RNA sequence: UGACUGGCUCAGUCGUGUGGUUACUUCGAACUUUGAUUAUAUUUAGCAAUAUUAACACAGACAAAACCCUUAACCACUGACGCAAUCCAGUUAUUUU
Number, nucleotide and partner (000 for none) at each position: 001u000002g092003a091004c090005u089006g088007g087008c000009u000010c000011a000012g081013u080014c079015g078016u000017g077018u076019g075020g074021u000022u000023a000024c000025u065026u064027c000028g062029a000030a000031c000032u000033u000034u000035g000036a000037u000038u000039a000040u000041a000042u000043u000044u000045a000046g000047c000048a000049a000050u000051a000052u000053u000054a000055a000056c000057a000058c000059a000060g000061a000062c028063a000064a026065a025066a000067c000068c000069c000070u000071u000072a000073a000074c020075c019076a018077c017078u015079g014080a013081c012082g000083c000084a000085a000086u000087c007088c006089a005090g004091u003092u002093a000094u000095u000096u000097u000
RNA: Vault RNA
Organism: Mizuhopecten yessoensis